[Rfam]
RNA sequence: GUAUUAUUUUGGCAAACUUACCGAAAGGUGAGGACGCAAAGCUAUGGGUCUAAGGAUGAAGAGUCUAUGACUGCCAGGUUGCAUUU
Numbered sequence: 001g002u003a004u005u006a007u008u009u010u011g012g013c014a015a016a017c018u019u020a021c022c023g024a025a026a027g028g029u030g031a032g033g034a035c036g037c038a039a040a041g042c043u044a045u046g047g048g049u050c051u052a053a054g055g056a057u058g059a060a061g062a063g064u065c066u067a068u069g070a071c072u073g074c075c076a077g078g079u080u081g082c083a084u085u086u
Base pairs, nucleotide, nucleotide: 012037013036017032018031019030020029021028022027040080041079042078043077045076046075047074048071049070050069055065056064057063
This 86-nucleotide RNA from Allolucifera butyrica belongs to the Rfam family "c-di-GMP-I riboswitch aptamer". A search with the family's covariance model found it, with a score of 72 bits. The family's consensus secondary structure is taken from published work. NCBI's taxonomy places the organism under Bacteria, Bacillota, Negativicutes, Veillonellales, Allolucifera.